[Rfam]
RNA sequence: AAGUAAGGUUUCUAGGGUUCCGCAGUAUAACUUACUGGUCUGGUCCGAGGGAGGCCCACGGAUAUUAUUCCGUGAACACACGGAGGGAAAAAAGCCCGGGAGGU
Numbered sequence: 001a002a003g004u005a006a007g008g009u010u011u012c013u014a015g016g017g018u019u020c021c022g023c024a025g026u027a028u029a030a031c032u033u034a035c036u037g038g039u040c041u042g043g044u045c046c047g048a049g050g051g052a053g054g055c056c057c058a059c060g061g062a063u064a065u066u067a068u069u070c071c072g073u074g075a076a077c078a079c080a081c082g083g084a085g086g087g088a089a090a091a092a093a094g095c096c097c098g099g100g101a102g103g104u
Stems, first nucleotide, its partner, number of pairs: 007056006015046002020043002022040001023037005057074005079099001081102001085097003

A member of the RNA family "Guanidine-I riboswitch aptamer" from Paenibacillus baekrokdamisoli, 104 nucleotides long. The pairing is the family consensus, mapped onto this sequence. The family has 100 seed sequences and 1,509 matches in Rfam 15.1. The organism belongs to Paenibacillus, within Bacteria.